[Rfam]
RNA sequence: CCACUCUGAAAAGCGUCCACCCCGGUGGGCCGCCCACGGUGAAAGCGCCCACCCGGCGUGAAACUCUCAGGCACCAUGACAGAGGGGGA
Numbered sequence: 001c002c003a004c005u006c007u008g009a010a011a012a013g014c015g016u017c018c019a020c021c022c023c024g025g026u027g028g029g030c031c032g033c034c035c036a037c038g039g040u041g042a043a044a045g046c047g048c049c050c051a052c053c054c055g056g057c058g059u060g061a062a063a064c065u066c067u068c069a070g071g072c073a074c075c076a077u078g079a080c081a082g083a084g085g086g087g088g089a
Stems, first nucleotide, its partner, number of pairs: 001087002004084005015030004032072003036067001039066001041064001045059004
RNA: Glycine riboswitch aptamer
Organism: Schumannella sp. 10F1B-5-1